The family of this 161-nucleotide RNA sequence from Providencia sneebia is "Glm Y RNA activator of glmS mRNA". Clan: Glm clan. The organism belongs to Providencia sneebia, within Bacteria. The literature on the family includes a 2001 paper in Curr Biol by Rivas et al., "Computational identification of noncoding RNAs in E. coli by comparative genomics".
RNA sequence: AGUUGCUCAUUCAACUUAUUAUGUCGGUCCACAAUUAGGUGGGAACAUACCACAUAAACCCGGAAUGAUGCCAAAGUAAGGUGCCUACCGUCCAACAUCAUAGAUAUUCGCUUUCGAGCUUUAUCAAACACAGGGCGACACGUGGAGUGAGGCACCACCUA
Numbered sequence: 001a002g003u004u005g006c007u008c009a010u011u012c013a014a015c016u017u018a019u020u021a022u023g024u025c026g027g028u029c030c031a032c033a034a035u036u037a038g039g040u041g042g043g044a045a046c047a048u049a050c051c052a053c054a055u056a057a058a059c060c061c062g063g064a065a066u067g068a069u070g071c072c073a074a075a076g077u078a079a080g081g082u083g084c085c086u087a088c089c090g091u092c093c094a095a096c097a098u099c100a101u102a103g104a105u106a107u108u109c110g111c112u113u114u115c116g117a118g119c120u121u122u123a124u125c126a127a128a129c130a131c132a133g134g135g136c137g138a139c140a141c142g143u144g145g146a147g148u149g150a151g152g153c154a155c156c157a158c159c160u161a
Base pairs, nucleotide, nucleotide: 005071006070007068008067009066010065011064012063019057020056021055022054023053024052026051027050028049080156081155082154083153084152085151086150089137090136091135092134093133103125104124105123106122139149140148141147